[Rfam]
RNA sequence: GACGGGGCACAAAAGGUCACUUGGAAAACGACCGAGGCGCGAGCCUCCAGUAGGACCCAAGUGAAGCCGGUGUUCCGUCGUACGUUUUGAAAAACGA
Numbered sequence: 001g002a003c004g005g006g007g008c009a010c011a012a013a014a015g016g017u018c019a020c021u022u023g024g025a026a027a028a029c030g031a032c033c034g035a036g037g038c039g040c041g042a043g044c045c046u047c048c049a050g051u052a053g054g055a056c057c058c059a060a061g062u063g064a065a066g067c068c069g070g071u072g073u074u075c076c077g078u079c080g081u082a083c084g085u086u087u088u089g090a091a092a093a094a095c096g097a
Stems, first nucleotide, its partner, number of pairs: 001079010015068002019062006029053001034047005083096003
Record summary: This 97-nucleotide part of an RNA from Natronomonas pharaonis belongs to the Rfam family "Archaeal large subunit ribosomal RNA". The sequence is in the family's curated seed alignment. NCBI's taxonomy places the organism under Archaea, Methanobacteriati, Halobacteriales, Natronomonas, Natronomonas pharaonis. The family's consensus secondary structure is taken from published work.